[Rfam]
Notes:
A member of the RNA family "Small nucleolar RNA SNORD25" from Panicum miliaceum, 83 nucleotides long. Rfam links the family to the GO terms RNA processing and nucleolus. The family has 12 seed sequences and 985 matches in Rfam 15.1. The organism belongs to Panicum sect. Panicum, within Eukaryota. For this family Rfam cites "Identification of 10 novel snoRNA gene clusters from Arabidopsis thaliana" (Qu et al., Nucleic Acids Res, 2001).
RNA sequence: CACGAUCGUGAUGAGCCUUAACAGACAUCUAGCGAUUCUCGCGGUUAUGAUGUCUUAAUGCAAAACUACGUUGCGGUUUUGUC
Numbered sequence: 001c002a003c004g005a006u007c008g009u010g011a012u013g014a015g016c017c018u019u020a021a022c023a024g025a026c027a028u029c030u031a032g033c034g035a036u037u038c039u040c041g042c043g044g045u046u047a048u049g050a051u052g053u054c055u056u057a058a059u060g061c062a063a064a065a066c067u068a069c070g071u072u073g074c075g076g077u078u079u080u081g082u083c
Stems, first nucleotide, its partner, number of pairs: 002082004